[Rfam]
RNA sequence: GAAAGACGGGUGAGAAUCCCGUCCACCGAAUGACUAAGGUUUCCUGGGGAAGGCUCGUCCUCCCAGGGUUAGUCGGGACCUAAGCUGAGGCCGAUAGGCGUAGGCGAUGGACAACAGGUUGAUAUUCCUGUACCAGUUGCUUUUGUUUGAGCGAUGGAGGGACGCAGUAGGCUAAGGAAAGCACACGAUCGGAAAUGUGUGUCCAAGCAGUAAGUCUGAGAACGAGUGAAAUGCUUUUUCUCUUAAGGACAAGCUGUGAUGGGGAGCGAAAUUAAGUAGCGAAGUUCCUGAUGUCACACUGCCAAGAAAAGCUUCUAGUGAGAAAGUAACUGCCCGUACCGCAAACCGACACAGGUAGUCGAGGAGAGAAUCCUAAGGUGUG
Numbered sequence: 001g002a003a004a005g006a007c008g009g010g011u012g013a014g015a016a017u018c019c020c021g022u023c024c025a026c027c028g029a030a031u032g033a034c035u036a037a038g039g040u041u042u043c044c045u046g047g048g049g050a051a052g053g054c055u056c057g058u059c060c061u062c063c064c065a066g067g068g069u070u071a072g073u074c075g076g077g078a079c080c081u082a083a084g085c086u087g088a089g090g091c092c093g094a095u096a097g098g099c100g101u102a103g104g105c106g107a108u109g110g111a112c113a114a115c116a117g118g119u120u121g122a123u124a125u126u127c128c129u130g131u132a133c134c135a136g137u138u139g140c141u142u143u144u145g146u147u148u149g150a151g152c153g154a155u156g157g158a159g160g161g162a163c164g165c166a167g168u169a170g171g172c173u174a175a176g177g178a179a180a181g182c183a184c185a186c187g188a189u190c191g192g193a194a195a196u197g198u199g200u201g202u203c204c205a206a207g208c209a210g211u212a213a214g215u216c217u218g219a220g221a222a223c224g225a226g227u228g229a230a231a232u233g234c235u236u237u238u239u240c241u242c243u244u245a246a247g248g249a250c251a252a253g254c255u256g257u258g259a260u261g262g263g264g265a266g267c268g269a270a271a272u273u274a275a276g277u278a279g280c281g282a283a284g285u286u287c288c289u290g291a292u293g294u295c296a297c298a299c300u301g302c303c304a305a306g307a308a309a310a311g312c313u314u315c316u317a318g319u320g321a322g323a324a325a326g327u328a329a330c331u332g333c334c335c336g337u338a339c340c341g342c343a344a345a346c347c348g349a350c351a352c353a354g355g356u357a358g359u360c361g362a363g364g365a366g367a368g369a370a371u372c373c374u375a376a377g378g379u380g381u382g
Stems, first nucleotide, its partner, number of pairs: 005023006024380004032360004038340002043067006052060002074336004079110002084105003088101001090099003114131005134332011151319002156315004164302004170295003175289005181202006203262002207257004214250003218242005224236001226234002266280002269277001346355002362374004
Overview: Bacterial large subunit ribosomal RNA: a 382-nucleotide part of an RNA from Trichococcus palustris. Lineage of the source: Bacteria > Bacillota > Lactobacillales > Carnobacteriaceae > Trichococcus.